Rfam assigns this 104-nucleotide sequence from Coptis chinensis to the family "Plant small nucleolar RNA R71". Its family is annotated with RNA processing and nucleolus in the Gene Ontology. The source organism's lineage runs through Eukaryota, Viridiplantae, Embryophyta, Tracheophyta and Coptis. By type it is a C/D-box small nucleolar RNA. The match comes from Rfam's covariance-model search (42 bits). The base pairs follow the family's consensus structure, which was predicted with PFOLD.
[Rfam]
Nucleotides: 104
Stems, first nucleotide, its partner, number of pairs: 001104001003102002005099001057074002060071001
Number, partner (000 for none) and nucleotide at each position: 001104a002000g003102g004101u005099u006000a007000u008000g009000a010000u011000g012000u013000g014000g015000a016000c017000a018000c019000u020000c021000u022000a023000u024000a025000a026000g027000c028000a029000g030000g031000c032000c033000c034000g035000u036000g037000a038000a039000a040000c041000a042000a043000u044000u045000c046000c047000a048000a049000g050000c051000c052000u053000c054000a055000g056000a057074a058073a059000a060071u061000g062000a063000u064000u065000c066000a067000u068000g069000a070000g071060g072000a073058u074057u075000c076000u077000g078000u079000c080000g081000a082000a083000a084000a085000a086000a087000a088000u089000g090000a091000a092000u093000c094000u095000u096000g097000g098000a099005a100000a101004g102003c103000a104001u